[Rfam]
RNA sequence: GAUAGCCGUAGAUAAUAGCGGGAUUCAGAGUUGGCUCAGUCACCACACGAACCGUUUGGCUGACAGCAUCAUACAACCCACCCCAGUACAUCGCUUUAGCAACCAGCAGCAACGCACCAAUGCCCAAGAAGAGCAGAUGAUGGCCUAAAAUCAGCCCCAAUUGUUUGGGAUCAUCCCA
Numbered sequence: 001g002a003u004a005g006c007c008g009u010a011g012a013u014a015a016u017a018g019c020g021g022g023a024u025u026c027a028g029a030g031u032u033g034g035c036u037c038a039g040u041c042a043c044c045a046c047a048c049g050a051a052c053c054g055u056u057u058g059g060c061u062g063a064c065a066g067c068a069u070c071a072u073a074c075a076a077c078c079c080a081c082c083c084c085a086g087u088a089c090a091u092c093g094c095u096u097u098a099g100c101a102a103c104c105a106g107c108a109g110c111a112a113c114g115c116a117c118c119a120a121u122g123c124c125c126a127a128g129a130a131g132a133g134c135a136g137a138u139g140a141u142g143g144c145c146u147a148a149a150a151u152c153a154g155c156c157c158c159a160a161u162u163g164u165u166u167g168g169g170a171u172c173a174u175c176c177c178a
Stems, first nucleotide, its partner, number of pairs: 136175006144169005
Dot-bracket structure: .......................................................................................................................................((((((..(((((................)))))))))))...